[Rfam]
Mason-Pfizer monkey virus packaging signal: a 297-nucleotide RNA sequence from Cavia porcellus.
Pairs were carried over by alignment from the consensus structure, which was predicted with PFOLD.
Taxonomically the source falls in Cavia (Eukaryota, Deuterostomia, Tetrapoda, Glires).
RNA sequence: UGGCACCCAGAGUGGGGCACCUGGCACAGAGGAUCCAACAAGGGAGCCAUCUGGGGAUGCGCGCGUAAAAAGGAAACUAAGAGUUUUGUGACCAAUGCUACGUGGGAGCCUGCCAUGCCGCUCAAGUCACGGUAAGUGGACAGCGAUCCUUUCCCCUUUUUUUCUGGCAUGGGUCAAGCAUUAAGUGAUCACAAACUUUUCGUGGGAGGUCUAAGUAAGGCAUUAAAGACAAGAGGGAUUAAGGCUAAAAAAAAGAUUUAUUACAAUAUUUUCAAUUUAUUCAUAAGGUUUGCCCUU
Dot-bracket structure: .....(((...((........................))..)))......(.........)..........................(((((....((..(((((.......)))))..))....)))))......(((.(...............................)))).....(((((.................................)).))).......((((.((..(((((.......)).)))......)).))))............(.((....)).).